Background: Cyano-1 RNA: a 65-nucleotide RNA. The sequence is in the family's curated seed alignment.
RNA sequence: GAAAGUGUGAGGAAAAACGCCAAACGGGGUGGAAACAAGGUCACACUCCCGGGAGACGUUUUGGA
Numbered sequence: 001g002a003a004a005g006u007g008u009g010a011g012g013a014a015a016a017a018c019g020c021c022a023a024a025c026g027g028g029g030u031g032g033a034a035a036c037a038a039g040g041u042c043a044c045a046c047u048c049c050c051g052g053g054a055g056a057c058g059u060u061u062u063g064g065a
Stems, first nucleotide, its partner, number of pairs: 015061005025053001026050003029046003